This 92-nucleotide RNA from Tranquillimonas alkanivorans belongs to the Rfam family "Rhodo-rpoB RNA". Lineage of the source: Bacteria > Pseudomonadati > Pseudomonadota > Roseobacteraceae > Tranquillimonas. A search with the family's covariance model found it, with a score of 54 bits.

RNA sequence: GGAUCGGGCGGCGGCCGGUGGGAAGGUCGCCAGGUAUGGACCCGGAACCCCCUGUUUCGAGAGCGCGCCGCCGUGGCCCCGGCGGAUCGGCA
Numbered sequence: 001g002g003a004u005c006g007g008g009c010g011g012c013g014g015c016c017g018g019u020g021g022g023a024a025g026g027u028c029g030c031c032a033g034g035u036a037u038g039g040a041c042c043c044g045g046a047a048c049c050c051c052c053u054g055u056u057u058c059g060a061g062a063g064c065g066c067g068c069c070g071c072c073g074u075g076g077c078c079c080c081g082g083c084g085g086a087u088c089g090g091c092a
Stems, first nucleotide, its partner, number of pairs: 001043002004040002010031007067091004071085003